[Rfam]
RNA sequence: UCUGGCUAUGAUUGUCCAAACGCAAUUCUUGUUUAUAUUUACACCAAGAACUGUGUAUGGACAUCAGUGCUUGA
Numbered sequence: 001u002c003u004g005g006c007u008a009u010g011a012u013u014g015u016c017c018a019a020a021c022g023c024a025a026u027u028c029u030u031g032u033u034u035a036u037a038u039u040u041a042c043a044c045c046a047a048g049a050a051c052u053g054u055g056u057a058u059g060g061a062c063a064u065c066a067g068u069g070c071u072u073g074a
Stems, first nucleotide, its partner, number of pairs: 002073001004071003009066004014062005021055004026050006

The family of this 74-nucleotide RNA sequence from Elysia chlorotica is "mir-219 microRNA precursor family". On this family, see Lim et al., Science 2003: "Vertebrate microRNA genes". Taxonomically the source falls in Elysia (Eukaryota, Opisthokonta, Placobranchoidea, Plakobranchidae).